The record is a 67-nucleotide RNA from Mustela putorius, which matches "Small Nucleolar RNA SNORD64" in Rfam. Rfam's curators write: The human snoRNA HBII-13 belongs to the C/D family of snoRNAs. It is expressed mainly in the brain, but is also in the lungs, the kidneys and muscle. HBII-13 snoRNA has no identified RNA target and is encoded together with HBII-436, HBII-437, HBII-438A/B and the clusters of HBII-85, HBII-52 snoRNA in a 460 kb intron of the large, paternally expressed, transcription unit (SNURF-SNRNP-UBE3A AS). A reference for the family is Cavaille et al. (2000), "Identification of brain-specific and imprinted small nucleolar RNA genes exhibiting an unusual genomic organization", Proc Natl Acad Sci U S A. NCBI's taxonomy places the organism under Eukaryota, Laurasiatheria, Carnivora, Caniformia, Mustela putorius. Gene Ontology terms of the family: nucleolus and RNA processing.
RNA sequence: GGGUUUGUGAUGAGUUAUGGAAACUGAGCAUGAUGAAAUGAGGCUGAACAUGAUUACUCUGAAGUAC
Numbered sequence: 001g002g003g004u005u006u007g008u009g010a011u012g013a014g015u016u017a018u019g020g021a022a023a024c025u026g027a028g029c030a031u032g033a034u035g036a037a038a039u040g041a042g043g044c045u046g047a048a049c050a051u052g053a054u055u056a057c058u059c060u061g062a063a064g065u066a067c
Stems, first nucleotide, its partner, number of pairs: 001067001003065003012059003025047001027045003